The family of this 917-nucleotide RNA sequence from Citrobacter koseri is "antisense RNA of rseC mRNA".
[Rfam]
RNA sequence: ACCUGCGCUUCCAUUUCACGGUCAGACAGGCCACCGCAGAUCUGGAUAAUGCGGUCAGACAGCGUCGAUUUACCGUGGUCGAUAUGAGCAAUGAUCGAAAAGUUACGUAUGUUCUUCAUAUAGAGUAAUUAUUGUGCCUUACGCCUGCCUGAGCAGGCUCUUAGAAGUCGCUGUUCUGAGCUUAACGUCUGUUUAACUGAAACGCCGCAUUCUACACUACAACACUGAGGCGAGGAAAUGUUCAUACAGCAAGGAUAGCGGGAACCGGAAACGGCAUCGCUUUUCUGAUGUAAAACGUCGUAAGGGAAGCAUGACGCCCAAUAGCGCGAGCUUAUCGGGCAUGGGAGGUCUGCUUAUCGUUCCCAGGCCGGAUCAGGCGAAGCCGCCAUCCGGCAAAAAUAUCACGGGUUCGUUUCGGAAGAUGGUGUUUCAACGCGAACCAGACCGGGAGGAAGAGCAACGUUAAGAAUGACCGGCUGCCAGGCCUCGCGUUCAGCCAGUUUACGCGAGUAGCCGCGCGCAAUCAGAAAACCCCCGACGCCGCCCAGCACCGCGCCGCUCAACGCGGCAAUAUCAGAACCAAACAGUACCUGGAACAACGCCGCGAAGAUAAACAGCCCAACCAGCGGCGACAGGUAAACCAGCAUUGCUGACCCCAGCAGGCUGCCUUCGGCAAUGCCCAGUUCCACUUUUUGACCAGGCGCCAGCGGUUCGGCACUUGGCACCACAAUGGUAUGUGUGGUUUGCGGCCCGAGUUUAUUCAGCACGCGACUGCCGCAUCCGGCCCGUGAGGCGCAACUGCUGCACGAUGCUUUGACGUCGCAGCUCACCAGUGCCUGGCCAUUUUGCCAGGAGACAACGGUCGCCCACUCUUUAAUCAUUGUGCCGCCCCGAACUUAAUAUUGUCCGCAAUGCGU
Number, nucleotide and partner (000 for none) at each position: 001a000002c000003c000004u279005g278006c000007g000008c274009u270010u269011c268012c267013a000014u000015u264016u263017c262018a000019c000020g154021g000022u152023c151024a150025g000026a000027c147028a146029g145030g144031c143032c000033a000034c000035c000036g137037c136038a135039g130040a129041u128042c000043u000044g115045g114046a113047u000048a000049a110050u109051g108052c107053g106054g000055u000056c000057a000058g104059a103060c102061a000062g000063c000064g000065u098066c097067g096068a095069u094070u093071u000072a000073c000074c000075g000076u090077g089078g000079u087080c086081g085082a000083u000084a000085u081086g080087a079088g000089c077090a076091a000092u000093g070094a069095u068096c067097g066098a065099a000100a000101a000102g060103u059104u058105a000106c053107g052108u051109a050110u049111g000112u000113u046114c045115u044116u000117c000118a000119u000120a000121u000122a000123g000124a000125g000126u000127a000128a041129u040130u039131a000132u000133u000134g000135u038136g037137c036138c000139u000140u000141a000142c000143g031144c030145c029146u028147g027148c000149c000150u024151g023152a022153g000154c020155a190156g189157g188158c187159u000160c000161u185162u184163a000164g183165a182166a000167g000168u179169c178170g177171c000172u000173g000174u000175u000176c000177u170178g169179a168180g000181c000182u165183u164184a162185a161186c000187g158188u157189c156190u155191g203192u202193u201194u199195a000196a000197c000198u000199g194200a000201a193202a192203c191204g000205c261206c260207g259208c258209a000210u000211u255212c254213u253214a000215c249216a000217c000218u246219a245220c235221a000222a000223c232224a000225c230226u000227g000228a000229g000230g225231c000232g223233a000234g000235g220236a000237a000238a000239u000240g000241u000242u000243c000244a000245u219246a218247c000248a000249g215250c000251a000252a000253g213254g212255a211256u000257a000258g208259c207260g206261g205262g017263a016264a015265c000266c000267g012268g011269a010270a009271a000272c000273g000274g008275c000276a000277u000278c005279g004280c000281u000282u000283u323284u000285c000286u320287g319288a312289u311290g310291u309292a000293a000294a000295a000296c000297g000298u000299c000300g000301u000302a000303a000304g000305g000306g000307a000308a000309g291310c290311a289312u288313g000314a000315c000316g000317c000318c000319c287320a286321a000322u000323a283324g917325c916326g915327c914328g913329a000330g910331c909332u000333u902334a901335u900336c000337g355338g354339g353340c352341a351342u000343g000344g000345g000346a000347g000348g000349u000350c000351u341352g340353c339354u338355u337356a000357u000358c000359g000360u000361u000362c000363c000364c893365a000366g891367g890368c000369c000370g886371g000372a884373u883374c000375a881376g000377g000378c000379g000380a000381a000382g000383c000384c000385g000386c000387c000388a000389u000390c000391c000392g867393g866394c865395a000396a863397a000398a000399a000400u000401a000402u858403c000404a000405c852406g000407g850408g849409u848410u000411c435412g434413u433414u432415u000416c000417g429418g428419a000420a426421g000422a000423u000424g000425g000426u420427g000428u418429u417430u000431c000432a414433a413434c412435g411436c000437g000438a000439a000440c000441c000442a000443g842444a000445c840446c839447g838448g837449g836450a000451g834452g000453a000454a000455g828456a827457g826458c825459a000460a000461c000462g000463u000464u000465a000466a000467g000468a000469a000470u000471g000472a000473c000474c000475g751476g750477c749478u748479g747480c746481c000482a745483g744484g743485c742486c000487u710488c709489g708490c707491g704492u703493u000494c701495a000496g000497c000498c695499a694500g693501u000502u000503u000504a000505c000506g686507c000508g684509a000510g000511u000512a000513g000514c000515c000516g539517c000518g000519c000520g535521c000522a000523a000524u000525c000526a000527g000528a000529a000530a000531a000532c000533c000534c000535c520536c000537g000538a000539c516540g000541c000542c631543g630544c629545c628546c000547a000548g623549c000550a000551c000552c000553g618554c617555g000556c000557c000558g000559c000560u610561c609562a000563a000564c606565g605566c604567g603568g602569c601570a000571a000572u000573a000574u594575c593576a592577g591578a000579a000580c000581c587582a000583a000584a000585c000586a000587g581588u000589a000590c000591c577592u576593g575594g574595a000596a000597c000598a000599a000600c000601g569602c568603c567604g566605c565606g564607a000608a000609g561610a560611u000612a000613a000614a000615c000616a000617g554618c553619c000620c000621a000622a000623c548624c000625a000626g000627c000628g545629g544630c543631g542632a000633c000634a000635g000636g000637u000638a000639a000640a000641c000642c000643a000644g679645c678646a677647u000648u675649g674650c673651u672652g671653a670654c000655c663656c662657c000658a000659g000660c000661a000662g656663g655664c000665u000666g000667c000668c000669u000670u653671c652672g651673g650674c649675a648676a000677u646678g645679c644680c000681c000682a000683g000684u508685u000686c506687c000688a000689c000690u000691u000692u000693u500694u499695g498696a000697c000698c000699a000700g000701g494702c000703g492704c491705c000706a000707g490708c489709g488710g487711u000712u000713c000714g000715g740716c739717a738718c737719u000720u735721g734722g000723c732724a731725c000726c000727a000728c000729a000730a000731u724732g723733g000734u721735a720736u000737g718738u717739g716740u715741g000742g485743u484744u483745u482746g480747c479748g478749g477750c476751c475752c000753g000754a000755g000756u000757u000758u000759a000760u000761u000762c000763a000764g805765c804766a803767c000768g802769c801770g800771a000772c000773u797774g796775c795776c000777g794778c793779a000780u791781c790782c000783g000784g000785c000786c000787c000788g000789u000790g781791a780792g000793g778794c777795g775796c774797a773798a000799c000800u770801g769802c768803u766804g765805c764806a000807c000808g821809a820810u819811g818812c000813u000814u000815u000816g000817a000818c811819g810820u809821c808822g000823c000824a000825g458826c457827u456828c455829a000830c000831c000832a000833g000834u451835g000836c449837c448838u447839g446840g445841c000842c443843a000844u000845u000846u000847u000848g409849c408850c407851a000852g405853g000854a000855g000856a000857c000858a402859a000860c000861g000862g000863u396864c000865g394866c393867c392868c000869a000870c000871u000872c000873u000874u000875u000876a000877a000878u000879c000880a000881u375882u000883g373884u372885g000886c370887c000888g000889c000890c367891c366892c000893g364894a000895a000896c000897u000898u000899a000900a335901u334902a333903u000904u000905g000906u000907c000908c000909g331910c330911a000912a000913u328914g327915c326916g325917u324
Lineage of the source: Bacteria > Pseudomonadota > Enterobacterales > Citrobacter > Citrobacter koseri.